[Rfam]
RNA: Nuclear RNase P
RNA sequence: GUUGGGGUGAAGCUCGCCAGAGGGGGUCACGGGCUGAGUGUGUCAUCACUCCUAGUCCCUCGGGGAAGAUCUGAGAGUAGAGCCAAUCACUACUCCUGCAGGGUGUCACCUGAUUCGGGUGAGGGAGUCACCAGGAAGAUGGUCUGGGUAGGUUGCACCAAUGUUUGGACAUGUUCCAACAUGGAUGUGGAUGCAGCUUUCUGGCCCCAAUGAGAAUGGCUUCCGAUUGGCUAUUUGAGUUCAAUGUGCGAGAUGAGACAUAGAGCCUCACAACCCAAUUCAGACUACUCUCACCCCAC
Dot-bracket structure: ((.(...(((..(((((....((((..........(((((......)))))......)))).........[[[[[.....((.(......(((((.....)))))((((((.....))))))(((((((.............(.................................................................)........)))))))).))...................))))).((((.(.....).))))........]]]]].......)))..).))